[Rfam]
RNA sequence: GAAAAGGAGGGUGAGAAUCCCUCCCACCGAAAGCCCGAGGUUUCCUGGGUAAAGCUCGUCUUCCCAGGGUUAGGCGGGAGCUAAGCCGAGGCCGAAAGGCGUAGGUGAUGCACAGCCGGUUAAUAUUCCGGCCCCACCUACUGACCGUUAAUACCGAUGGAGGGACGCAGGAGGGUAGGUGCGCCUGGUGGUGACAUACCAGGUCCAAGCCCCAAGGGAGGGAGUGUAGGCAAAUCCGCACUCCCGUUGAACUGAGGGGUGAUGGGGAGCCCUCGUGAGAGGGCGAAGGCAUCGAGCUCACACUGCCGAGAAAAGCUCCUAGGGAGGUCAGUGGGUGCCCGUACCGCAAACCGACACAGGUGGGCGAGGUGAAGAUCCAAAGGUGCG
Numbered sequence: 001g002a003a004a005a006g007g008a009g010g011g012u013g014a015g016a017a018u019c020c021c022u023c024c025c026a027c028c029g030a031a032a033g034c035c036c037g038a039g040g041u042u043u044c045c046u047g048g049g050u051a052a053a054g055c056u057c058g059u060c061u062u063c064c065c066a067g068g069g070u071u072a073g074g075c076g077g078g079a080g081c082u083a084a085g086c087c088g089a090g091g092c093c094g095a096a097a098g099g100c101g102u103a104g105g106u107g108a109u110g111c112a113c114a115g116c117c118g119g120u121u122a123a124u125a126u127u128c129c130g131g132c133c134c135c136a137c138c139u140a141c142u143g144a145c146c147g148u149u150a151a152u153a154c155c156g157a158u159g160g161a162g163g164g165a166c167g168c169a170g171g172a173g174g175g176u177a178g179g180u181g182c183g184c185c186u187g188g189u190g191g192u193g194a195c196a197u198a199c200c201a202g203g204u205c206c207a208a209g210c211c212c213c214a215a216g217g218g219a220g221g222g223a224g225u226g227u228a229g230g231c232a233a234a235u236c237c238g239c240a241c242u243c244c245c246g247u248u249g250a251a252c253u254g255a256g257g258g259g260u261g262a263u264g265g266g267g268a269g270c271c272c273u274c275g276u277g278a279g280a281g282g283g284c285g286a287a288g289g290c291a292u293c294g295a296g297c298u299c300a301c302a303c304u305g306c307c308g309a310g311a312a313a314a315g316c317u318c319c320u321a322g323g324g325a326g327g328u329c330a331g332u333g334g335g336u337g338c339c340c341g342u343a344c345c346g347c348a349a350a351c352c353g354a355c356a357c358a359g360g361u362g363g364g365c366g367a368g369g370u371g372a373a374g375a376u377c378c379a380a381a382g383g384u385g386c387g
Base pairs, nucleotide, nucleotide: 006024007023008022009021010020011019025385026384027383028382033365034364035363036362039345040344044068045067046066047065048064049063053061054060075341076340077339078338080111081110085106086105087104089102091100092099093098115132116131117130118129119128135337136336137335138334139333140332141331142330143329144328145327154323155322159319160318161317162316167306168305169304170303173299174298175297178293179292180291181290182289183204184203185202186201187200188199205265206264209260210259211258212257216253217252221244222243223242224241225240226239227238229237230236269284270283271282272281273280351360352359368378369377
RNA: Bacterial large subunit ribosomal RNA, nucleotides 1383 to 1769
Organism: Dictyoglomus thermophilum